[Rfam]
RNA sequence: CCCCGCGACCCACGCGGGGAACUCUUUUCGUCAGCAACGGGGGUCUGCUCGUG
Numbered sequence: 001c002c003c004c005g006c007g008a009c010c011c012a013c014g015c016g017g018g019g020a021a022c023u024c025u026u027u028u029c030g031u032c033a034g035c036a037a038c039g040g041g042g043g044u045c046u047g048c049u050c051g052u053g
Base pairs, nucleotide, nucleotide: 001019002018003017004016005015006014007013
RNA: ClpQY promoter